[Rfam]
RNA sequence: GUCCGUUGCAAGUUCCCGAAAGGAUUCGCAGCUGCGAAGAUGCCUUGUAACCGAAUCGAAAUUUAGGGGGAAUACAAAAAAUG
Numbered sequence: 001g002u003c004c005g006u007u008g009c010a011a012g013u014u015c016c017c018g019a020a021a022g023g024a025u026u027c028g029c030a031g032c033u034g035c036g037a038a039g040a041u042g043c044c045u046u047g048u049a050a051c052c053g054a055a056u057c058g059a060a061a062u063u064u065a066g067g068g069g070g071a072a073u074a075c076a077a078a079a080a081a082u083g
Stems, first nucleotide, its partner, number of pairs: 013072005020046004025038005051067002
RNA: SAM-III riboswitch aptamer (SMK box)